This 88-nucleotide sequence from Deltavirus italiense belongs to the Rfam family "Hepatitis delta virus ribozyme". The sequence is in the family's curated seed alignment. The hepatitis delta virus (HDV) ribozyme is necessary for viral replication and is thought to be the only catalytic RNA known to be required for viability of a human pathogen. The ribozyme acts to process the RNA transcripts to unit lengths in a self cleavage reaction. The ribozyme is found to be active in vivo in the absence of any protein factors and is the fastest known naturally occurring self-cleaving RNA. For this family Rfam cites "Crystal structure of a hepatitis delta virus ribozyme" (Ferre-D'Amare et al., Nature, 1998). Gene Ontology term of the family: RNA nuclease activity.

RNA sequence: GUGGCCGGCAUGGUCCCAGCCUCCUCGUUGGCGCCGGCCGGGCAACAUUCCGAGGGGACCGUCCCUCGGUAAUGGCGAAUGGGACCCA
Numbered sequence: 001g002u003g004g005c006c007g008g009c010a011u012g013g014u015c016c017c018a019g020c021c022u023c024c025u026c027g028u029u030g031g032c033g034c035c036g037g038c039c040g041g042g043c044a045a046c047a048u049u050c051c052g053a054g055g056g057g058a059c060c061g062u063c064c065c066u067c068g069g070u071a072a073u074g075g076c077g078a079a080u081g082g083g084a085c086c087c088a
Stems, first nucleotide, its partner, number of pairs: 003039007012086007019032003023041002046074004050069007058062001